[Rfam]
RNA sequence: GGCACUCUGGAAAGCCCGCGCCCCGCCAGGGGUCCGGCACCGACGGAGUAAGGCUUCGGGGUGGAACCCCGGCGCUGAAUCUCUCAGGUCUUCCGACAGAGGGGGGUCA
Numbered sequence: 001g002g003c004a005c006u007c008u009g010g011a012a013a014g015c016c017c018g019c020g021c022c023c024c025g026c027c028a029g030g031g032g033u034c035c036g037g038c039a040c041c042g043a044c045g046g047a048g049u050a051a052g053g054c055u056u057c058g059g060g061g062u063g064g065a066a067c068c069c070c071g072g073c074g075c076u077g078a079a080u081c082u083c084u085c086a087g088g089u090c091u092u093c094c095g096a097c098a099g100a101g102g103g104g105g106g107u108c109a
Stems, first nucleotide, its partner, number of pairs: 003103001005101005016037003039089003042085002046083003052076002
RNA: Glycine riboswitch aptamer
Organism: Roseococcus suduntuyensis